[Rfam]
RNA sequence: CCAACGUGGAUAUCCGGAGAAGUCGCUCUCUCUCGGCUCUGUCCCUGUGGCGCACGGGAGCGUAGGCCUUCGGGCCCCUGACGUACAGUCCCUUUCCACGACGUUGGAGAACAAGCCGGGCCUCGGGCCUGCAGCCUGCAUAUUCCUACUGCUUCCCCGAGCCCUCGGGCCGUGACGGGGGAGAUAAACCAUGCAGGAAACAGCU
Numbered sequence: 001c002c003a004a005c006g007u008g009g010a011u012a013u014c015c016g017g018a019g020a021a022g023u024c025g026c027u028c029u030c031u032c033u034c035g036g037c038u039c040u041g042u043c044c045c046u047g048u049g050g051c052g053c054a055c056g057g058g059a060g061c062g063u064a065g066g067c068c069u070u071c072g073g074g075c076c077c078c079u080g081a082c083g084u085a086c087a088g089u090c091c092c093u094u095u096c097c098a099c100g101a102c103g104u105u106g107g108a109g110a111a112c113a114a115g116c117c118g119g120g121c122c123u124c125g126g127g128c129c130u131g132c133a134g135c136c137u138g139c140a141u142a143u144u145c146c147u148a149c150u151g152c153u154u155c156c157c158c159g160a161g162c163c164c165u166c167g168g169g170c171c172g173u174g175a176c177g178g179g180g181g182a183g184a185u186a187a188a189c190c191a192u193g194c195a196g197g198a199a200a201c202a203g204c205u
Stems, first nucleotide, its partner, number of pairs: 001107007008044005014036003018029003047099004056092004060086001062084002065079002135197007152183006161170003

About this RNA:
Rfam assigns this 205-nucleotide RNA from Himantopus himantopus to the family "Small nucleolar RNA SNORA73 family". Clan: snR30-U17 clan. For this family Rfam cites "5'ETS rRNA processing facilitated by four small RNAs: U14, E3, U17, and U3" (Enright et al., RNA, 1996). Rfam describes the family as follows. U17 (SNORA73A and SNORA73B) also known as E1 belongs to the H/ACA class of small nucleolar RNAs (snoRNAs). Vertebrate U17 is intron-encoded and ranges in length from 200-230 nucleotides, longer than most snoRNAs. The match comes from Rfam's covariance-model search (189 bits). NCBI's taxonomy places the organism under Eukaryota, Eumetazoa, Chordata, Teleostomi, Himantopus.